[Rfam]
RNA sequence: UCAGUCGGCUGGAUGGCCGCUCCGGGGUAACCCGGGGAGGAAAGUCCGGGCUCCACGGAAAAACGGUGCCGGAUAACGUCCGGCGGGGGCGACCCUAGGGAAAGUGCCACAGAAAGCAGACCACCGCACCGCGCCUCCGGGCGCCGUGCGGCAAGGGUGAAAGGGUGCGGUAAGAGCGCACCGCGGGCCCGGCAACGGGACCGGCACGGUAAACCCCACCGGGAGCAAAACCAAAUAGGGACGGCACGCGCCAAACCGCCCGCCCGCGGGUGGUCAGGUGGCGCGAGGUGUUUCCGCACCGCCGUCCGGGUCGGUUGCUCGAGGCGUCCGGCGACGGACGUCCCAGAUGAAUGGCCAUCCACCGCCCCUCGGGGUGGGGACAGAACCCGGCUUACAGGCCGACUGAUGCU
Numbered sequence: 001u002c003a004g005u006c007g008g009c010u011g012g013a014u015g016g017c018c019g020c021u022c023c024g025g026g027g028u029a030a031c032c033c034g035g036g037g038a039g040g041a042a043a044g045u046c047c048g049g050g051c052u053c054c055a056c057g058g059a060a061a062a063a064c065g066g067u068g069c070c071g072g073a074u075a076a077c078g079u080c081c082g083g084c085g086g087g088g089g090c091g092a093c094c095c096u097a098g099g100g101a102a103a104g105u106g107c108c109a110c111a112g113a114a115a116g117c118a119g120a121c122c123a124c125c126g127c128a129c130c131g132c133g134c135c136u137c138c139g140g141g142c143g144c145c146g147u148g149c150g151g152c153a154a155g156g157g158u159g160a161a162a163g164g165g166u167g168c169g170g171u172a173a174g175a176g177c178g179c180a181c182c183g184c185g186g187g188c189c190c191g192g193c194a195a196c197g198g199g200a201c202c203g204g205c206a207c208g209g210u211a212a213a214c215c216c217c218a219c220c221g222g223g224a225g226c227a228a229a230a231c232c233a234a235a236u237a238g239g240g241a242c243g244g245c246a247c248g249c250g251c252c253a254a255a256c257c258g259c260c261c262g263c264c265c266g267c268g269g270g271u272g273g274u275c276a277g278g279u280g281g282c283g284c285g286a287g288g289u290g291u292u293u294c295c296g297c298a299c300c301g302c303c304g305u306c307c308g309g310g311u312c313g314g315u316u317g318c319u320c321g322a323g324g325c326g327u328c329c330g331g332c333g334a335c336g337g338a339c340g341u342c343c344c345a346g347a348u349g350a351a352u353g354g355c356c357a358u359c360c361a362c363c364g365c366c367c368c369u370c371g372g373g374g375u376g377g378g379g380a381c382a383g384a385a386c387c388c389g390g391c392u393u394a395c396a397g398g399c400c401g402a403c404u405g406a407u408g409c410u
Base pairs, nucleotide, nucleotide: 001406002405003404004403005402006401007400008399009398010397011395012359013358014357015356016355017354018353020037021036022035023034024033025032026031042393043392044391046390047389048388049387050386051225052224053223054222061293064221065220066219067218068217069083070082071081072080073079084098085096086095087094088093099216100215104214105213106210107209108208121156122155124151125150126149127148128147129146131144132143133142134141135140164182165181166180167179168178169177183205184203185202186201188199189198190197191196229316230315231314232313239307240306241305242304243303244302287300288299289298290297291296323342324341325340326339327338328337329336330335
Description
Shown here is a 410-nucleotide RNA sequence from Caenispirillum bisanense, a member of the family "Bacterial RNase P class A". Its family is annotated with dimeric ribonuclease P complex, tRNA processing and ribonuclease P activity in the Gene Ontology.